[Rfam]
RNA: Guanidine-II riboswitch aptamer (mini-ykkC)
Organism: Devosia sp. Root685
RNA sequence: AAGCGAGGACGACCUCCCCCUUUUCGGGAUCACGUUUCGGGACGACCCGA
Number, nucleotide and partner (000 for none) at each position: 001a000002a000003g018004c000005g016006a015007g014008g013009a000010c000011g000012a000013c008014c007015u006016c005017c000018c003019c000020c000021u000022u000023u000024u000025c000026g000027g000028g000029a000030u000031c000032a000033c000034g000035u000036u000037u050038c049039g048040g047041g046042a000043c000044g000045a000046c041047c040048c039049g038050a037